The record is a 184-nucleotide RNA from Streptomyces silvensis, which matches "c-di-AMP riboswitch aptamer (ydaO/yuaA leader)" in Rfam.
Its family is annotated with regulation of gene expression and cyclic-di-AMP binding in the Gene Ontology.
NCBI's taxonomy places the organism under Bacteria, Bacillati, Actinomycetes, Kitasatosporales, Streptomyces.
The base pairs follow the family's consensus structure.
It scores 60 bits against the family's covariance model.

RNA sequence: UCGCUUCGAGCGCCGAAGGCAGGAGCGGGGGACCCAAGGUAAGCGCCGGGCCCGUCCGUUGCGCAGCGAGAUGUUGCGCGAGGGGCAGGAGCGGCUAGGGGUUAAGUCGCACGCAGUCUGUGCGGCCGGGCACUCACCCGCCCGAACCCGACAGCUCACCUCGCAGGCGUCGGUGAGGGGAUCC
Dot-bracket structure: ..........((((..........((((((....(..............................................................)(((.....((((...........))))..((((........))))...))).........)))))).))))...............